Annotation:
The record is a 223-nucleotide sequence from Streptomyces spongiae, which matches "Streptomyces RNA 1601" in Rfam. About the family: Identified by deep sequencing of transcriptome at the end of exponential growth phase. Appears longer on northern blot than sequencing transcript. Streptomyces specific.
RNA sequence: GACGACCGGUCGGACGCACCAAGAAUUCUCUGAGUGUGCCCGACCCGCAAGUGGAGGCUCCGAACUCCCACCUGACCCUCCUUAGGGACGGCAGGUCACCGGUCAGGCGGCCACCACCGUUCCGUACGGACGGUGGAGUCGCCCGAAGCGCGCCCCGCGGUUGCACCGCGGCGGUGCUCCGGCAGUCUGGAGCUCCGCCUGUGUCCCGUCCGGGGCAUUUUUC
Numbered sequence: 001g002a003c004g005a006c007c008g009g010u011c012g013g014a015c016g017c018a019c020c021a022a023g024a025a026u027u028c029u030c031u032g033a034g035u036g037u038g039c040c041c042g043a044c045c046c047g048c049a050a051g052u053g054g055a056g057g058c059u060c061c062g063a064a065c066u067c068c069c070a071c072c073u074g075a076c077c078c079u080c081c082u083u084a085g086g087g088a089c090g091g092c093a094g095g096u097c098a099c100c101g102g103u104c105a106g107g108c109g110g111c112c113a114c115c116a117c118c119g120u121u122c123c124g125u126a127c128g129g130a131c132g133g134u135g136g137a138g139u140c141g142c143c144c145g146a147a148g149c150g151c152g153c154c155c156c157g158c159g160g161u162u163g164c165a166c167c168g169c170g171g172c173g174g175u176g177c178u179c180c181g182g183c184a185g186u187c188u189g190g191a192g193c194u195c196c197g198c199c200u201g202u203g204u205c206c207c208g209u210c211c212g213g214g215g216c217a218u219u220u221u222u223c
Stems, first nucleotide, its partner, number of pairs: 004104006012041002042097004048074002051071004055066002076091002079088003106143003110140001114136008152216006158208003167203003170199005176193005